[Rfam]
RNA: Small nucleolar RNA SNORD23
RNA sequence: UACCCGCUGAUGAUCCCAUCCUUGCUCCCCAGGCCCUCCCGGGCAGUGGGCGACACUGUGGCUCCCCUGGGCUGGCCAGUUGGGCUGAUGCCUGGGGGCUGAGGGCA
Numbered sequence: 001u002a003c004c005c006g007c008u009g010a011u012g013a014u015c016c017c018a019u020c021c022u023u024g025c026u027c028c029c030c031a032g033g034c035c036c037u038c039c040c041g042g043g044c045a046g047u048g049g050g051c052g053a054c055a056c057u058g059u060g061g062c063u064c065c066c067c068u069g070g071g072c073u074g075g076c077c078a079g080u081u082g083g084g085c086u087g088a089u090g091c092c093u094g095g096g097g098g099c100u101g102a103g104g105g106c107a
Stems, first nucleotide, its partner, number of pairs: 001107001003105003